[Rfam]
RNA sequence: GCUGCCCGGAUGCCUGGUCGACAGGAGUGGAUCGGCAGGAGUGGAGGACCCGAGCACAACGGGCCGACCGGACCCCCGGUCGUCCCUCGGGGUGAAGCCGCCACGUGCGGCCGGGCGACUUCGCCAGCCCGAACCCGACAGGUCAUCCUUCACAGGCGGCUGACGAAGGGUUG
Number, nucleotide and partner (000 for none) at each position: 001g000002c000003u000004g000005c039006c038007c000008g000009g000010a000011u000012g000013c000014c000015u000016g000017g000018u000019c000020g000021a000022c000023a000024g000025g000026a000027g000028u000029g000030g000031a000032u000033c000034g000035g000036c000037a000038g006039g005040a000041g153042u152043g151044g150045a149046g148047g000048a000049c000050c000051c089052g088053a087054g086055c000056a000057c000058a000059a000060c000061g000062g000063g000064c000065c000066g000067a000068c000069c000070g000071g000072a000073c000074c000075c000076c000077c000078g000079g000080u000081c000082g000083u000084c000085c000086c054087u053088c052089g051090g136091g135092g134093u000094g000095a000096a000097g000098c110099c109100g108101c107102c000103a000104c000105g000106u000107g101108c100109g099110g098111c000112c000113g130114g129115g128116c127117g000118a000119c000120u000121u000122c000123g000124c000125c000126a000127g116128c115129c114130c113131g000132a000133a000134c092135c091136c090137g000138a000139c000140a000141g000142g000143u000144c000145a000146u000147c000148c046149u045150u044151c043152a042153c041154a000155g000156g000157c000158g000159g000160c000161u000162g000163a000164c000165g000166a000167a000168g000169g000170g000171u000172u000173g000
The family of this 173-nucleotide RNA is "c-di-AMP riboswitch aptamer (ydaO/yuaA leader)". Rfam links the family to the GO terms regulation of gene expression and cyclic-di-AMP binding.